This 99-nucleotide sequence from Sedimentibacter saalensis belongs to the Rfam family "azaaromatic riboswitch aptamer (yjdF RNA)". The family's consensus secondary structure is taken from published work.
[Rfam]
RNA sequence: AAUUACAAAGAUAAAAACACGUCCCGGUAGGUAGUCCGGGAGCAACAAUUUGUUGUCAGUAACCUGCCUCCUUGGUUGUCCGUUCUUUGUUCAUUAAAU
Numbered sequence: 001a002a003u004u005a006c007a008a009a010g011a012u013a014a015a016a017a018c019a020c021g022u023c024c025c026g027g028u029a030g031g032u033a034g035u036c037c038g039g040g041a042g043c044a045a046c047a048a049u050u051u052g053u054u055g056u057c058a059g060u061a062a063c064c065u066g067c068c069u070c071c072u073u074g075g076u077u078g079u080c081c082g083u084u085c086u087u088u089g090u091u092c093a094u095u096a097a098a099u
Stems, first nucleotide, its partner, number of pairs: 005090007022041006042056006066076003